[Rfam]
RNA sequence: GAAUCACCGGUUCAUCGCGGCGGGUAUUGGGCUGGUAAACGUAGACCGUCCUGCUCAGCGAUAAUGUCCUGCACGCCUGGCGGAUGCUCAUGGCAAAUUGAGCUGUCAGGUAGCUGACGAGCUCCCGCUUUAUCGCUGGUUUU
Numbered sequence: 001g002a003a004u005c006a007c008c009g010g011u012u013c014a015u016c017g018c019g020g021c022g023g024g025u026a027u028u029g030g031g032c033u034g035g036u037a038a039a040c041g042u043a044g045a046c047c048g049u050c051c052u053g054c055u056c057a058g059c060g061a062u063a064a065u066g067u068c069c070u071g072c073a074c075g076c077c078u079g080g081c082g083g084a085u086g087c088u089c090a091u092g093g094c095a096a097a098u099u100g101a102g103c104u105g106u107c108a109g110g111u112a113g114c115u116g117a118c119g120a121g122c123u124c125c126c127g128c129u130u131u132a133u134c135g136c137u138g139g140u141u142u143u
Base pairs, nucleotide, nucleotide: 025112026111027110028109030107031106048077050075052073053072054071058067059066060065080103081102116141117140118139120137121136122135
The record is a 143-nucleotide RNA sequence from Pluralibacter gergoviae, which matches "isrN Hfq binding RNA" in Rfam. Taxonomically the source falls in Pluralibacter (Bacteria, Pseudomonadati, Pseudomonadota, Enterobacteriaceae). The family's consensus secondary structure was predicted with WAR. For this family Rfam cites "Small RNAs encoded within genetic islands of Salmonella typhimurium show host-induced expression and role in virulence" (Padalon-Brauch et al., Nucleic Acids Res, 2008).